[Rfam]
RNA sequence: UGGAAGAUUGAUACACGAGAUACCAGAAGUUUAGAAUUUCUCGUCACAAAAUCUUCCUAAAAAAAAAUCUGCCUUCUGAUGACUGUAGCUUGUAAAGUUUUAAUUUGCAGACAGAUACGGGGCAUACAUAU
Numbered sequence: 001u002g003g004a005a006g007a008u009u010g011a012u013a014c015a016c017g018a019g020a021u022a023c024c025a026g027a028a029g030u031u032u033a034g035a036a037u038u039u040c041u042c043g044u045c046a047c048a049a050a051a052u053c054u055u056c057c058u059a060a061a062a063a064a065a066a067a068u069c070u071g072c073c074u075u076c077u078g079a080u081g082a083c084u085g086u087a088g089c090u091u092g093u094a095a096a097g098u099u100u101u102a103a104u105u106u107g108c109a110g111a112c113a114g115a116u117a118c119g120g121g122g123c124a125u126a127c128a129u130a131u
Stems, first nucleotide, its partner, number of pairs: 002057006015044004022037001024034001067125001070124006083110003088105001090103002
Dot-bracket structure: .((((((.......((((...(.(.........)..)...)))).......)))))).........(..((((((.......(((..(.((..........)).)..)))........)))))))......
RNA: Small Cajal body specific RNA 8
Organism: Vespula germanica